[Rfam]
RNA sequence: AUGGUCAGGGAAAGGGGCCUGUGUUGUUGAACCUGUCCAGUUGUGGCAACUUCGUAGCAGGUAGCCCAACUCUGACCUAAAGAAAAUUCCCAGAAGUUCUUCCUGGGAUUUAAAUUUGUAGUAACAGGUGUGAGCAUUCUAGCAGCAGUUUGAUGAUCAUGUAUGAUACUGAAAACAGGA
Numbered sequence: 001a002u003g004g005u006c007a008g009g010g011a012a013a014g015g016g017g018c019c020u021g022u023g024u025u026g027u028u029g030a031a032c033c034u035g036u037c038c039a040g041u042u043g044u045g046g047c048a049a050c051u052u053c054g055u056a057g058c059a060g061g062u063a064g065c066c067c068a069a070c071u072c073u074g075a076c077c078u079a080a081a082g083a084a085a086a087u088u089c090c091c092a093g094a095a096g097u098u099c100u101u102c103c104u105g106g107g108a109u110u111u112a113a114a115u116u117u118g119u120a121g122u123a124a125c126a127g128g129u130g131u132g133a134g135c136a137u138u139c140u141a142g143c144a145g146c147a148g149u150u151u152g153a154u155g156a157u158c159a160u161g162u163a164u165g166a167u168a169c170u171g172a173a174a175a176c177a178g179g180a
Stems, first nucleotide, its partner, number of pairs: 003077004008072003014066002018061004024056001026050004089107003093102003115175003119171005125165002131159003135155004141150003

Source information:
This 180-nucleotide sequence from Otolemur garnettii belongs to the Rfam family "Small Cajal body specific RNA 16". The family has 37 seed sequences and 790 matches in Rfam 15.1. NCBI's taxonomy places the organism under Eukaryota, Vertebrata, Dipnotetrapodomorpha, Amniota, Otolemur. The literature on the family includes a 2002 paper in EMBO J by Darzacq et al., "Cajal body-specific small nuclear RNAs: a novel class of 2'-O-methylation and pseudouridylation guide RNAs". About the family: scaRNAs are a specific class of small nuclear RNAs which localise to the Cajal bodies and guide the modification of RNA polymerase II transcribed spliceosomal RNAs U1, U2, U4, U5 and U12. ACA47 belongs to the H/ACA box class of guide RNAs as it has the predicted hairpin-hinge-hairpin-tail structure, the conserved H/ACA-box motifs and is found associated with GAR1. Rfam classes the family as a small Cajal body RNA. Its family is annotated with nucleolus and RNA processing in the Gene Ontology.